[Rfam]
RNA sequence: AAGAAAUCGCUGUGAAAUCAACAUGGCAGCGAUUUUUUACUUGCUGCCAUGUAUCUUUCUUGUUUCAAAACUAUAUGGUAGCGAUACAAAAAUCGCUGCCAUAUCAUUUGGCAGUGAUUUUUUACUCGCUGCCAUAUAU
Numbered sequence: 001a002a003g004a005a006a007u008c009g010c011u012g013u014g015a016a017a018u019c020a021a022c023a024u025g026g027c028a029g030c031g032a033u034u035u036u037u038u039a040c041u042u043g044c045u046g047c048c049a050u051g052u053a054u055c056u057u058u059c060u061u062g063u064u065u066c067a068a069a070a071c072u073a074u075a076u077g078g079u080a081g082c083g084a085u086a087c088a089a090a091a092a093u094c095g096c097u098g099c100c101a102u103a104u105c106a107u108u109u110g111g112c113a114g115u116g117a118u119u120u121u122u123u124a125c126u127c128g129c130u131g132c133c134a135u136a137u138a139u
Stems, first nucleotide, its partner, number of pairs: 003066004012059001014057002021052006028045003070139001072138002076134007092118007100111001103108001

The family of this 139-nucleotide sequence from Carya illinoinensis is "Small nucleolar RNA SNORA14".
Its family is annotated with RNA processing and nucleolus in the Gene Ontology.
From the family's description: ACA14 is a member of the H/ACA class of snoRNA that guide the sites of modification of uridines to pseudouridines.
Rfam classes the family as an H/ACA-box small nucleolar RNA.
Pairs were carried over by alignment from the consensus structure, which was predicted with RNAfold.